[Rfam]
RNA: mir-139 microRNA precursor family
Organism: Meleagris gallopavo
RNA sequence: CUGUAUUCUACAGUGCAUGUGUCUCCAGUGUCACUCAGCAACUGGGGACACAGCCCUGUUGGAAUCAC
Numbered sequence: 001c002u003g004u005a006u007u008c009u010a011c012a013g014u015g016c017a018u019g020u021g022u023c024u025c026c027a028g029u030g031u032c033a034c035u036c037a038g039c040a041a042c043u044g045g046g047g048a049c050a051c052a053g054c055c056c057u058g059u060u061g062g063a064a065u066c067a068c
Stems, first nucleotide, its partner, number of pairs: 006064004010059004015054002018052012